[Rfam]
RNA sequence: GAAGCCCGCCAGGCCGCCGCUGGUGCAAUCGCCGAAAGGCCGCACUGGAGGAACGUCCGGACUGCAAAGGGCAGCGUAGCAGGUAACACCUGUCCGCCGUGAGGCGAGGAUCAGAGCAACAGAGACGAGUCCUGCAUUCGAAAGGGUGUGGGGGUGAAACGGGCAAUCUCUACGCGCAGCAAUACCAAAUAGGCCAGCGUUGAUGUGGCUCCGCGGAGCUGGCGGGUAGGUAGCAUCGAGCCGGUGGCGCGAGCCCCGGCCCAGAAGAAUGGCGGUCACGUGUGGGCGACCACACGCACAAAAUCCGGCGUAUCGGCGGGCUUCACAC
Numbered sequence: 001g002a003a004g005c006c007c008g009c010c011a012g013g014c015c016g017c018c019g020c021u022g023g024u025g026c027a028a029u030c031g032c033c034g035a036a037a038g039g040c041c042g043c044a045c046u047g048g049a050g051g052a053a054c055g056u057c058c059g060g061a062c063u064g065c066a067a068a069g070g071g072c073a074g075c076g077u078a079g080c081a082g083g084u085a086a087c088a089c090c091u092g093u094c095c096g097c098c099g100u101g102a103g104g105c106g107a108g109g110a111u112c113a114g115a116g117c118a119a120c121a122g123a124g125a126c127g128a129g130u131c132c133u134g135c136a137u138u139c140g141a142a143a144g145g146g147u148g149u150g151g152g153g154g155u156g157a158a159a160c161g162g163g164c165a166a167u168c169u170c171u172a173c174g175c176g177c178a179g180c181a182a183u184a185c186c187a188a189a190u191a192g193g194c195c196a197g198c199g200u201u202g203a204u205g206u207g208g209c210u211c212c213g214c215g216g217a218g219c220u221g222g223c224g225g226g227u228a229g230g231u232a233g234c235a236u237c238g239a240g241c242c243g244g245u246g247g248c249g250c251g252a253g254c255c256c257c258g259g260c261c262c263a264g265a266a267g268a269a270u271g272g273c274g275g276u277c278a279c280g281u282g283u284g285g286g287c288g289a290c291c292a293c294a295c296g297c298a299c300a301a302a303a304u305c306c307g308g309c310g311u312a313u314c315g316g317c318g319g320g321c322u323u324c325a326c327a328c
Stems, first nucleotide, its partner, number of pairs: 001324010011313001012277007020048007053311003057308005062179004069211004074175005079093005094108001095106004109170002114168002116164002131153002134149006183232004193223006204215004240260005246255003